The record is a 116-nucleotide sequence from Brachypodium distachyon, which matches "MIR5070 microRNA precursor family" in Rfam. Lineage of the source: Eukaryota > Tracheophyta > Spermatophyta > Brachypodieae > Brachypodium.
RNA sequence: CAGGGUACCCAUUGACCCUCUUUAGUUCAAACAGAUGAACUAGUUUUCCAAAAAGUUGUUUUAUUUUACAACUUUAGUUCAUUUGAUUGAACUAAGGAGGGUCAAAGGGUACCCUG
Numbered sequence: 001c002a003g004g005g006u007a008c009c010c011a012u013u014g015a016c017c018c019u020c021u022u023u024a025g026u027u028c029a030a031a032c033a034g035a036u037g038a039a040c041u042a043g044u045u046u047u048c049c050a051a052a053a054a055g056u057u058g059u060u061u062u063a064u065u066u067u068a069c070a071a072c073u074u075u076a077g078u079u080c081a082u083u084u085g086a087u088u089g090a091a092c093u094a095a096g097g098a099g100g101g102u103c104a105a106a107g108g109g110u111a112c113c114c115u116g
Stems, first nucleotide, its partner, number of pairs: 002115009012105019032085012